[Rfam]
RNA sequence: GAUGGCAAGUGAUGAAAAAAACUUCUUAUGCUUAACACUGAACUAAAUGUGGACUAAAAACUUCGCUUAUUAUCUGAUGCCAUC
Numbered sequence: 001g002a003u004g005g006c007a008a009g010u011g012a013u014g015a016a017a018a019a020a021a022c023u024u025c026u027u028a029u030g031c032u033u034a035a036c037a038c039u040g041a042a043c044u045a046a047a048u049g050u051g052g053a054c055u056a057a058a059a060a061c062u063u064c065g066c067u068u069a070u071u072a073u074c075u076g077a078u079g080c081c082a083u084c
Stems, first nucleotide, its partner, number of pairs: 003082005

The record is an 84-nucleotide sequence from Castanea mollissima, which matches "Small nucleolar RNA R16" in Rfam. Rfam classes the family as a C/D-box small nucleolar RNA. On this family, see Galardi et al., Mol Cell Biol 2002: "Purified box C/D snoRNPs are able to reproduce site-specific 2'-O-methylation of target RNA in vitro". The family has 18 seed sequences and 884 matches in Rfam 15.1. Lineage of the source: Eukaryota > Magnoliopsida > Gunneridae > Pentapetalae > Castanea.